This 102-nucleotide RNA sequence from Scleropages formosus belongs to the Rfam family "mir-454 microRNA precursor family". On this family, see Chen et al., Genes Dev 2005: "The developmental miRNA profiles of zebrafish as determined by small RNA cloning".
[Rfam]
RNA sequence: GUGAUCUUUCCUAAGUGCUGAAACCCUAUCAGUAUUGUCUCUGCUGUCCACUGUGAUCACAGUAGUGCAAUAUUGCUUAUAGGGUUUCAGUGUUUGGGCAGA
Dot-bracket structure: ...................(((((((((((((((((((..(((((...............))))).)))))))))...))))))))))..............